Description:
Rfam assigns this 151-nucleotide RNA sequence from Ricinus communis to the family "small nucleolar RNA snoR134". Its family is annotated with RNA processing and nucleolus in the Gene Ontology. The family has 5 seed sequences and 792 matches in Rfam 15.1.
RNA sequence: CUGCACGUAGUCUCCCGGGCUUCUCUGAAAGUAAAUCAAUGAUUUUGAAAGCCCCAAUACUCGUGCUAAAUCUUUGCCGUUUAGUGUUGCAGUUUAGCUCUUGUACCUUAUUUUUUCACGGCUUAUCUGUGUCAAAUCAACGGCCAAAUUU
Numbered sequence: 001c002u003g004c005a006c007g008u009a010g011u012c013u014c015c016c017g018g019g020c021u022u023c024u025c026u027g028a029a030a031g032u033a034a035a036u037c038a039a040u041g042a043u044u045u046u047g048a049a050a051g052c053c054c055c056a057a058u059a060c061u062c063g064u065g066c067u068a069a070a071u072c073u074u075u076g077c078c079g080u081u082u083a084g085u086g087u088u089g090c091a092g093u094u095u096a097g098c099u100c101u102u103g104u105a106c107c108u109u110a111u112u113u114u115u116u117c118a119c120g121g122c123u124u125a126u127c128u129g130u131g132u133c134a135a136a137u138c139a140a141c142g143g144c145c146a147a148a149u150u151u
Stems, first nucleotide, its partner, number of pairs: 003066005010060002017054005022048002076144006085134002088131005097122003